[Rfam]
RNA sequence: UUUCCCGUUUUAGUACCGUUCAUUCAUCCAUCCCCGAAUGAACGGCUAUGCUAAUGGGAAAGAGAGAACAAUGUCAUCGUCUGAAGGAGGGGCUGGCGUUGUCCACCCCUCCUAAUAGAACUGACAGAACAAUUUAUU
Numbered sequence: 001u002u003u004c005c006c007g008u009u010u011u012a013g014u015a016c017c018g019u020u021c022a023u024u025c026a027u028c029c030a031u032c033c034c035c036g037a038a039u040g041a042a043c044g045g046c047u048a049u050g051c052u053a054a055u056g057g058g059a060a061a062g063a064g065a066g067a068a069c070a071a072u073g074u075c076a077u078c079g080u081c082u083g084a085a086g087g088a089g090g091g092g093c094u095g096g097c098g099u100u101g102u103c104c105a106c107c108c109c110u111c112c113u114a115a116u117a118g119a120a121c122u123g124a125c126a127g128a129a130c131a132a133u134u135u136a137u138u
Stems, first nucleotide, its partner, number of pairs: 004058004016045004073125004090113003

Shown here is a 138-nucleotide RNA sequence from Coregonus sp. 'balchen', a member of the family "Small nucleolar RNA SNORA29". Gene Ontology terms of the family: nucleolus and RNA processing. The literature on the family includes a 2001 paper in EMBO J by Huttenhofer et al., "RNomics: an experimental approach that identifies 201 candidates for novel, small, non-messenger RNAs in mouse". It is annotated as an H/ACA-box small nucleolar RNA. From the family's description: ACA29 is a member of the H/ACA class of snoRNA that guide the sites of modification of uridines to pseudouridines. Taxonomically the source falls in Coregonus (Eukaryota, Craniata, Actinopteri, Protacanthopterygii).